A member of the RNA family "glmS glucosamine-6-phosphate activated ribozyme aptamer" from Aceticella autotrophica, 152 nucleotides long.
RNA sequence: AAAUGAAUAAAAGCGCCUGGACUUAAGGUGUUCCUUAAGUUGACGAGGACAGGGUUUAUCGAGAUUUCGGCGGAUACCCUGCGGUUUGCUGCGACCGAAAAGAACCGGUAAAACCAUGGGCGACCAUGACAUAGAGCGGUUCGGGCAGAAAA
Numbered sequence: 001a002a003a004u005g006a007a008u009a010a011a012a013g014c015g016c017c018u019g020g021a022c023u024u025a026a027g028g029u030g031u032u033c034c035u036u037a038a039g040u041u042g043a044c045g046a047g048g049a050c051a052g053g054g055u056u057u058a059u060c061g062a063g064a065u066u067u068c069g070g071c072g073g074a075u076a077c078c079c080u081g082c083g084g085u086u087u088g089c090u091g092c093g094a095c096c097g098a099a100a101a102g103a104a105c106c107g108g109u110a111a112a113a114c115c116a117u118g119g120g121c122g123a124c125c126a127u128g129a130c131a132u133a134g135a136g137c138g139g140u141u142c143g144g145g146c147a148g149a150a151a152a
Stems, first nucleotide, its partner, number of pairs: 020041008050081005059070004082097005102142006115128005
Dot-bracket structure: ...................((((((((......))))))))........(((((....((((....))))......)))))(((((......)))))....((((((.......(((((....)))))........))))))..........
The base pairs follow the family's consensus structure, which is taken from published work.
This entry contains a glucosamine-6-phosphate activated ribozyme that is found in the mRNA for GlmS. GlmS is an enzyme that uses fructose-6-phosphate and glutamine to generate glucosamine-6-phosphate.